[Rfam]
RNA sequence: CCCGCGACAGGACGGAAAGACCCCAUGGAGCUUUACUGUAGCUUGAUAUUGAGUGUUUGUGCUGCUUGUACAGAAUAGGUAGGAGACGUAGAAACCGGAACGCUAGUUUCGGUGGAGUCAAAAGAUGGGAUACUACCCUCGUUGUAUGACCACUCUAACUCUGGCCACUAAUCGUGGUCGAAGACAGUGUCUGGCGGGCAGUUUGACUGGGGCGGUCGCCUCCUAAAAGGUAACGGAGGCGCUCAAAGGUUUGCUCAGAAUGGUUGGAAAUCAUUCGUAGCGUGUAAAGGCACAAGCAAGCUUGACUGCGAGAGCUACAACUCGAGCAGGUACGAAAGUAGGACUUAGUGAUCCGGUGGUUCCGCAUGGAAGGGCCAUCGCUCAACGGAUAAAAGCUACCCUGGGGAUAACAGGCUCAUCUCCCCCAAGAGUCCACAUCGACGGGGAGGUUUGGCACCUCGAUGUCGGCUCAUCGCAUCCUGGGGCUGUAGUCGGUCCCAAGGGUUGGGCUGUUCGCCCAUUAAAGCGGUACGCGAGCUGGGUUCAGAACGUCGUGAGACAGUUCGGUCCCUAUCCGUCGCGGGCGCA
Numbered sequence: 001c002c003c004g005c006g007a008c009a010g011g012a013c014g015g016a017a018a019g020a021c022c023c024c025a026u027g028g029a030g031c032u033u034u035a036c037u038g039u040a041g042c043u044u045g046a047u048a049u050u051g052a053g054u055g056u057u058u059g060u061g062c063u064g065c066u067u068g069u070a071c072a073g074a075a076u077a078g079g080u081a082g083g084a085g086a087c088g089u090a091g092a093a094a095c096c097g098g099a100a101c102g103c104u105a106g107u108u109u110c111g112g113u114g115g116a117g118u119c120a121a122a123a124g125a126u127g128g129g130a131u132a133c134u135a136c137c138c139u140c141g142u143u144g145u146a147u148g149a150c151c152a153c154u155c156u157a158a159c160u161c162u163g164g165c166c167a168c169u170a171a172u173c174g175u176g177g178u179c180g181a182a183g184a185c186a187g188u189g190u191c192u193g194g195c196g197g198g199c200a201g202u203u204u205g206a207c208u209g210g211g212g213c214g215g216u217c218g219c220c221u222c223c224u225a226a227a228a229g230g231u232a233a234c235g236g237a238g239g240c241g242c243u244c245a246a247a248g249g250u251u252u253g254c255u256c257a258g259a260a261u262g263g264u265u266g267g268a269a270a271u272c273a274u275u276c277g278u279a280g281c282g283u284g285u286a287a288a289g290g291c292a293c294a295a296g297c298a299a300g301c302u303u304g305a306c307u308g309c310g311a312g313a314g315c316u317a318c319a320a321c322u323c324g325a326g327c328a329g330g331u332a333c334g335a336a337a338g339u340a341g342g343a344c345u346u347a348g349u350g351a352u353c354c355g356g357u358g359g360u361u362c363c364g365c366a367u368g369g370a371a372g373g374g375c376c377a378u379c380g381c382u383c384a385a386c387g388g389a390u391a392a393a394a395g396c397u398a399c400c401c402u403g404g405g406g407a408u409a410a411c412a413g414g415c416u417c418a419u420c421u422c423c424c425c426c427a428a429g430a431g432u433c434c435a436c437a438u439c440g441a442c443g444g445g446g447a448g449g450u451u452u453g454g455c456a457c458c459u460c461g462a463u464g465u466c467g468g469c470u471c472a473u474c475g476c477a478u479c480c481u482g483g484g485g486c487u488g489u490a491g492u493c494g495g496u497c498c499c500a501a502g503g504g505u506u507g508g509g510c511u512g513u514u515c516g517c518c519c520a521u522u523a524a525a526g527c528g529g530u531a532c533g534c535g536a537g538c539u540g541g542g543u544u545c546a547g548a549a550c551g552u553c554g555u556g557a558g559a560c561a562g563u564u565c566g567g568u569c570c571c572u573a574u575c576c577g578u579c580g581c582g583g584g585c586g587c588a
Stems, first nucleotide, its partner, number of pairs: 001584008010576003014571002022405004027401002029397005035202004042194002045191004051155005057149006064142002068138001078137005085119003094113008160181002163179006205217004218240006241386001243343002249301006256280001258276006282291002306329004312323003331340003354380007362373002414455003418452001419449007429439002466541001467539004471533001472530005479504002482499006506520005547565004551560003
Shown here is a 588-nucleotide part of an RNA from Leuconostoc fallax, a member of the family "Bacterial large subunit ribosomal RNA". A search with the family's covariance model found it, with a score of 2893 bits. The family's consensus secondary structure is taken from published work.